[Rfam]
RNA sequence: CUAUAAGUGCAAAAAAACACAUCCCGGUUGGUAGUCCGGGAGCGCGAACAUUGCGUCAGUAACCUUCCCUCCAGGUCGUCCGUUGCAAUCUUUACAAAG
Numbered sequence: 001c002u003a004u005a006a007g008u009g010c011a012a013a014a015a016a017a018c019a020c021a022u023c024c025c026g027g028u029u030g031g032u033a034g035u036c037c038g039g040g041a042g043c044g045c046g047a048a049c050a051u052u053g054c055g056u057c058a059g060u061a062a063c064c065u066u067c068c069c070u071c072c073a074g075g076u077c078g079u080c081c082g083u084u085g086c087a088a089u090c091u092u093u094a095c096a097a098a099g
Stems, first nucleotide, its partner, number of pairs: 006089001008087004022041006042056006067075002
RNA: azaaromatic riboswitch aptamer (yjdF RNA)
Organism: Enterococcus asini